This 81-nucleotide RNA sequence from Parahaemophilus pittmaniae belongs to the Rfam family "Aggregatibacter sRNA 20".
By type it is a small RNA.
A search with the family's covariance model found it, with a score of 81 bits.
From the family's description: Validated by RT-PCR and Northern blot.
The base pairs follow the family's consensus structure.
Lineage of the source: Bacteria > Pseudomonadati > Pseudomonadota > Gammaproteobacteria > Parahaemophilus.
Nucleotides: 081
Base pairs, nucleotide, nucleotide: 001076002075003074004073006071007070008069022040023039024038026036027035029034051068052067053066054065055064056063
Number, partner (000 for none) and nucleotide at each position: 001076a002075a003074a004073a005000c006071a007070a008069g009000u010000g011000c012000u013000a014000u015000a016000c017000c018000a019000a020000a021000u022040a023039g024038c025000c026036g027035a028000c029034a030000u031000c032000u033000a034029u035027u036026u037000u038024g039023c040022u041000u042000u043000c044000c045000g046000a047000g048000u049000a050000g051068u052067g053066c054065c055064a056063c057000a058000u059000c060000a061000a062000u063056g064055u065054g066053g067052c068051a069008c070007u071006u072000u073004u074003u075002u076001u077000u078000u079000g080000c081000c